[Rfam]
RNA sequence: AUGAUGGAUGAUGAUAAGAAUCAUUCGGAUUCCCAAUGAUUUCUUGUUUAACAUGAUAUCAAACAACCAGCUACUUCUGACACAU
Numbered sequence: 001a002u003g004a005u006g007g008a009u010g011a012u013g014a015u016a017a018g019a020a021u022c023a024u025u026c027g028g029a030u031u032c033c034c035a036a037u038g039a040u041u042u043c044u045u046g047u048u049u050a051a052c053a054u055g056a057u058a059u060c061a062a063a064c065a066a067c068c069a070g071c072u073a074c075u076u077c078u079g080a081c082a083c084a085u
Stems, first nucleotide, its partner, number of pairs: 001085003005082002